[Rfam]
RNA: U5 spliceosomal RNA
RNA sequence: AGCUGCGCAGCAAGCACAUAGCGAACUAUUCUUUCGCCUUUUACUAAAGAAUACCGUGUGUUUGCUGCAAUAAGCAGCAUAUGUCUAUUUUUGGAGGGGUUUUCUUUUUUAAGAAAAA
Numbered sequence: 001a002g003c004u005g006c007g008c009a010g011c012a013a014g015c016a017c018a019u020a021g022c023g024a025a026c027u028a029u030u031c032u033u034u035c036g037c038c039u040u041u042u043a044c045u046a047a048a049g050a051a052u053a054c055c056g057u058g059u060g061u062u063u064g065c066u067g068c069a070a071u072a073a074g075c076a077g078c079a080u081a082u083g084u085c086u087a088u089u090u091u092u093g094g095a096g097g098g099g100u101u102u103u104c105u106u107u108u109u110u111a112a113g114a115a116a117a118a
Stems, first nucleotide, its partner, number of pairs: 003077004008067011027053008100117005